[Rfam]
Nucleotides: 081
Base pairs, nucleotide, nucleotide: 004078005077006076007075009072012068013067014066016064017063018062020060021059022058023057025055026054028053030051031050032049
Number, partner (000 for none) and nucleotide at each position: 001000u002000u003000c004078u005077c006076c007075a008000g009072c010000u011000a012068a013067g014066g015000u016064g017063c018062a019000u020060c021059u022058a023057g024000u025055g026054u027000a028053g029000c030051u031050a032049g033000u034000g035000a036000a037000g038000u039000a040000c041000c042000u043000c044000a045000g046000u047000a048000u049032c050031u051030a052000c053028u054026g055025c056000u057023c058022u059021a060020g061000u062018u063017g064016c065000u066014c067013c068012u069000u070000c071000u072009g073000g074000a075007u076006g077005g078004a079000g080000g081000a
The record is an 81-nucleotide RNA sequence from Mastacembelus armatus, which matches "mir-17 microRNA precursor family" in Rfam. Its family is annotated with miRNA-mediated post-transcriptional gene silencing and RISC complex in the Gene Ontology. NCBI's taxonomy places the organism under Eukaryota, Vertebrata, Euteleosteomorpha, Acanthomorphata, Mastacembelus. Pairs were carried over by alignment from the consensus structure, which was predicted with RNAalifold. From the family's description: This family represents the microRNA (miRNA) precursor mir-17, family, which includes mir-20, mir-91, and mir-103. miRNAs are transcribed as ~70nt precursors (modelled here) and subsequently processed by the Dicer enzyme to give a ~22nt product. In this case the mature sequence comes from the 3' arm of the precursor. The extents of the hairpin precursors are not generally known and are estimated based on hairpin prediction. A search with the family's covariance model found it, with a score of 50 bits.